[Rfam]
RNA sequence: AUUAACUGUGAUGAGUCUUAACAGACCUGUAAUGAUUUUGCGGGAAUGAUCGCAGAUCAAUUGAACAUCUAAGGGACUGAGUUUAU
Numbered sequence: 001a002u003u004a005a006c007u008g009u010g011a012u013g014a015g016u017c018u019u020a021a022c023a024g025a026c027c028u029g030u031a032a033u034g035a036u037u038u039u040g041c042g043g044g045a046a047u048g049a050u051c052g053c054a055g056a057u058c059a060a061u062u063g064a065a066c067a068u069c070u071a072a073g074g075g076a077c078u079g080a081g082u083u084u085a086u
Stems, first nucleotide, its partner, number of pairs: 002085001004083003

Shown here is an 86-nucleotide RNA from Cannabis sativa, a member of the family "Small nucleolar RNA SNORD25".
By type it is a C/D-box small nucleolar RNA.
The family has 12 seed sequences and 985 matches in Rfam 15.1.
A reference for the family is Qu et al. (2001), "Identification of 10 novel snoRNA gene clusters from Arabidopsis thaliana", Nucleic Acids Res.
Lineage of the source: Eukaryota > Mesangiospermae > Pentapetalae > Rosales > Cannabis.